[Rfam]
RNA sequence: UUCGUCGCUGUCAGUAACAAGGAUUCAUCCUGUUGAGAAGCUGCAGACUAACAGGAAAUCACUGUUACUGUGGGUGACGGU
Numbered sequence: 001u002u003c004g005u006c007g008c009u010g011u012c013a014g015u016a017a018c019a020a021g022g023a024u025u026c027a028u029c030c031u032g033u034u035g036a037g038a039a040g041c042u043g044c045a046g047a048c049u050a051a052c053a054g055g056a057a058a059u060c061a062c063u064g065u066u067a068c069u070g071u072g073g074g075u076g077a078c079g080g081u
Stems, first nucleotide, its partner, number of pairs: 012070008022060004029055007037048001
Notes
Shown here is an 81-nucleotide RNA sequence from Cynoglossus semilaevis, a member of the family "mir-459 microRNA precursor family". Its family is annotated with RISC complex and miRNA-mediated post-transcriptional gene silencing in the Gene Ontology.